[Rfam]
RNA sequence: AGGAGAGUAAGCCCUGAUGGUGACGGGCGCUGUUUGCUAAACAGUUGGGGCGGUUUACCCCGUCUCGGGUUCGAUUCCCGUGCUCUCCU
Numbered sequence: 001a002g003g004a005g006a007g008u009a010a011g012c013c014c015u016g017a018u019g020g021u022g023a024c025g026g027g028c029g030c031u032g033u034u035u036g037c038u039a040a041a042c043a044g045u046u047g048g049g050g051c052g053g054u055u056u057a058c059c060c061c062g063u064c065u066c067g068g069g070u071u072c073g074a075u076u077c078c079c080g081u082g083c084u085c086u087c088c089u
Stems, first nucleotide, its partner, number of pairs: 001089009012027003028047001029045005049064005066080004
Rfam assigns this 89-nucleotide sequence from Fimbriimonas ginsengisoli to the family "Selenocysteine transfer RNA".
It scores 48 bits against the family's covariance model.